A member of the RNA family "SAM-I/IV (S-adenosyl methionine) riboswitch aptamer" from Breoghania corrubedonensis, 120 nucleotides long. The source organism's lineage runs through Bacteria, Pseudomonadota, Hyphomicrobiales, Stappiaceae and Breoghania. The family's consensus secondary structure is taken from published work. A search with the family's covariance model found it, with a score of 58 bits.

RNA sequence: AAGGAACAUCAAGAGAAGGGCUGGCGCCCUCGCCAACCUGCCCAUCCGCGGCAAGGUGGUACCCGACGUUAAGGGAUGUGGCCCGGCGACUUGUUCGACCAGGCAACCCAGCGGUCUUCG
Numbered sequence: 001a002a003g004g005a006a007c008a009u010c011a012a013g014a015g016a017a018g019g020g021c022u023g024g025c026g027c028c029c030u031c032g033c034c035a036a037c038c039u040g041c042c043c044a045u046c047c048g049c050g051g052c053a054a055g056g057u058g059g060u061a062c063c064c065g066a067c068g069u070u071a072a073g074g075g076a077u078g079u080g081g082c083c084c085g086g087c088g089a090c091u092u093g094u095u096c097g098a099c100c101a102g103g104c105a106a107c108c109c110a111g112c113g114g115u116c117u118u119c120g
Stems, first nucleotide, its partner, number of pairs: 006079005015031001017030005032060003037056003040052003046114003081104003